[Rfam]
Overview
The family of this 65-nucleotide RNA from Caldimonas brevitalea is "nhaA-I RNA". Taxonomically the source falls in Caldimonas (Bacteria, Betaproteobacteria, Burkholderiales, Sphaerotilaceae). The match comes from Rfam's covariance-model search (48 bits). Rfam describes the family as follows. Acidobacteria, Alphaproteobacteria, Betaproteobacteria and Gammaproteobacteria, Verrucomicrobia, cand. division NC10.
RNA sequence: GGGUGUCGGGCGGGACUUGCUUCUUGUUGCCCCCGGCAGGUUGACGCGAUGGUCGGGCCGCCACG
Number, nucleotide and partner (000 for none) at each position: 001g000002g000003g000004u000005g037006u036007c035008g034009g033010g032011c000012g030013g000014g000015a000016c000017u000018u000019g000020c000021u000022u000023c000024u000025u000026g000027u000028u000029g000030c012031c000032c010033c009034c008035g007036g006037c005038a000039g000040g000041u000042u000043g000044a000045c000046g000047c065048g064049a000050u063051g062052g061053u060054c000055g000056g000057g000058c000059c000060g053061c052062c051063a050064c048065g047